Source information:
A member of the RNA family "PreQ1 (pre queuosine) riboswitch aptamer" from Enterococcus faecium, 45 nucleotides long. The literature on the family includes a 2009 paper in Nat Struct Mol Biol by Klein et al., "Cocrystal structure of a class I preQ1 riboswitch reveals a pseudoknot recognizing an essential hypermodified nucleobase". Lineage of the source: Bacteria > Bacillota > Lactobacillales > Enterococcus > Enterococcus faecium. The family has 43 seed sequences and 873 matches in Rfam 15.1. Its family is annotated with queuosine biosynthetic process in the Gene Ontology.

RNA sequence: CUUGGACUGGUUCGGAAACUUCCCAGAAUAAAAAACUAAGUAUCU
Dot-bracket structure: ......((((.....[......))))..........]........